[Rfam]
RNA: Bacterial large subunit ribosomal RNA, nucleotides 2011 to 2597
RNA sequence: CCCGCGGCUAGACGGAAAGACCCCAUGAACCUUUACUGUAGCUUUGCAUUGGACUUUGAACCGGCCUGUGUAGGAUAGGUGGGAGGCAAUGAAGCGUGGACGCUAGUACACGUGGAGCCGACCUUGAAAUACCACCCUGGUUUGUUUGAGGUUCUAACCUUGGCCCGUGAUCCGGGUUGGGGACAGUGCAUGGUAGGCAGUUUGACUGGGGCGGUCUCCUCCCAAAGUGUAACGGAGGAGUUCGAAGGUACGCUAGGUACGGUCGGACAUCGUGCUAAUAGUGCAAUGGCAUAAGCGUGCUUAACUGCGAGACCGACAAGUCGAGCAGGUACGAAAGUAGGACAUAGUGAUCCGGUGGUUCUGUAUGGAAGGGCCAUCGCUCAACGGAUAAAAGGUACUCUGGGGAUAACAGGCUGAUUCCUCCCAAGAGUUCAUAUCGACGGGGGAGUUUGGCACCUCGAUGUCGGCUCAUCACAUCCUGGGGCUGUAGCCGGUCCCAAGGGUAUGGCUGUUCGCCAUUUAAAGUGGUACGUGAGCUGGGUUUAAAACGUCGUGAGACAGUUUGGUCCCUAUCUGCCGUGGGCGUU
Number, nucleotide and partner (000 for none) at each position: 001c583002c582003c581004g580005c579006g578007g577008c576009u000010a575011g574012a573013c000014g570015g569016a000017a000018a000019g000020a000021c000022c404023c403024c402025a401026u000027g400028a399029a396030c395031c394032u393033u392034u000035a201036c200037u199038g198039u000040a000041g000042c193043u192044u000045u190046g189047c188048a187049u000050u000051g154052g153053a152054c151055u150056u149057u148058g147059a146060a145061c144062c000063g142064g141065c140066c139067u000068g137069u000070g000071u000072a000073g000074g000075a000076u000077a000078g136079g135080u134081g133082g132083g000084a000085g119086g118087c117088a000089a000090u000091g000092a000093a000094g113095c112096g111097u110098g109099g000100a107101c106102g000103c000104u000105a000106g101107u100108a000109c098110a097111c096112g095113u094114g000115g000116a000117g087118c086119c085120g000121a000122c000123c000124u000125u000126g000127a000128a000129a000130u000131a000132c082133c081134a080135c079136c078137c068138u000139g066140g065141u064142u063143u000144g061145u060146u059147u058148g057149a056150g055151g054152u053153u052154c051155u000156a000157a000158c181159c180160u179161u000162g178163g177164c176165c175166c174167g173168u000169g000170a000171u000172c000173c167174g166175g165176g164177u163178u162179g160180g159181g158182g000183a000184c000185a000186g000187u048188g047189c046190a045191u000192g043193g042194u000195a000196g000197g000198c038199a037200g036201u035202u000203u000204g216205a215206c214207u213208g000209g000210g000211g000212c000213g207214g206215u205216c204217u239218c238219c237220u236221c235222c234223c000224a000225a000226a000227g000228u000229g000230u000231a000232a000233c000234g222235g221236a220237g219238g218239a217240g385241u000242u342243c341244g000245a000246a000247g000248g300249u299250a298251c297252g296253c295254u280255a279256g000257g275258u274259a273260c272261g271262g270263u000264c000265g000266g000267a000268c000269a000270u262271c261272g260273u259274g258275c257276u000277a000278a000279u255280a254281g290282u289283g000284c000285a000286a000287u000288g000289g282290c281291a000292u000293a000294a000295g253296c252297g251298u250299g249300c248301u000302u000303a000304a000305c328306u327307g326308c325309g000310a000311g322312a321313c320314c000315g000316a000317c000318a000319a000320g313321u312322c311323g000324a000325g308326c307327a306328g305329g000330u339331a338332c337333g000334a000335a000336a000337g332338u331339a330340g000341g243342a242343c000344a000345u000346a000347g000348u000349g000350a000351u000352c000353c379354g378355g377356u376357g375358g374359u373360u000361c372362u371363g000364u000365a000366u000367g000368g000369a000370a000371g362372g361373g359374c358375c357376a356377u355378c354379g353380c000381u000382c000383a000384a000385c240386g000387g000388a000389u000390a000391a000392a033393a032394g031395g030396u029397a000398c000399u028400c027401u025402g024403g023404g022405g000406a000407u000408a000409a000410c000411a000412g000413g454414c453415u452416g000417a451418u448419u447420c446421c445422u444423c443424c442425c000426a000427a000428g438429a437430g000431u000432u000433c000434a000435u000436a000437u429438c428439g000440a000441c000442g424443g423444g422445g421446g420447a419448g418449u000450u000451u417452g415453g414454c413455a000456c000457c000458u000459c000460g000461a000462u000463g000464u000465c540466g538467g537468c536469u535470c532471a529472u528473c527474a526475c525476a000477u000478c503479c502480u000481g498482g497483g496484g495485c494486u493487g000488u000489a000490g000491c000492c000493g486494g485495u484496c483497c482498c481499a000500a000501g000502g479503g478504u000505a519506u518507g517508g516509c515510u000511g000512u000513u000514c000515g509516c508517c507518a506519u505520u000521u000522a000523a000524a000525g475526u474527g473528g472529u471530a000531c000532g470533u000534g000535a469536g468537c467538u466539g000540g465541g000542u000543u000544u000545a000546a564547a563548a562549c561550g559551u558552c557553g000554u000555g000556a000557g552558a551559c550560a000561g549562u548563u547564u546565g000566g000567u000568c000569c015570c014571u000572a000573u012574c011575u010576g008577c007578c006579g005580u004581g003582g002583g001584c000585g000586u000587u000